[Rfam]
RNA sequence: ACCUUUGGCCGCUGGGAUACUCCUUGUGCUCGCUGUGCAAUUUACGUGAAACCAGUGAACACAUCUGGUGGUAUCUCAGUGGCCGGCUGUGU
Numbered sequence: 001a002c003c004u005u006u007g008g009c010c011g012c013u014g015g016g017a018u019a020c021u022c023c024u025u026g027u028g029c030u031c032g033c034u035g036u037g038c039a040a041u042u043u044a045c046g047u048g049a050a051a052c053c054a055g056u057g058a059a060c061a062c063a064u065c066u067g068g069u070g071g072u073a074u075c076u077c078a079g080u081g082g083c084c085g086g087c088u089g090u091g092u
Stems, first nucleotide, its partner, number of pairs: 008083005015077001016075002019072002022068002025063002028060001030058002
A member of the RNA family "mir-317 microRNA precursor family" from Anopheles sinensis, 92 nucleotides long. A reference for the family is Stark et al. (2007), "Systematic discovery and characterization of fly microRNAs using 12 Drosophila genomes", Genome Res. It scores 72 bits against the family's covariance model. Its family is annotated with miRNA-mediated post-transcriptional gene silencing and RISC complex in the Gene Ontology.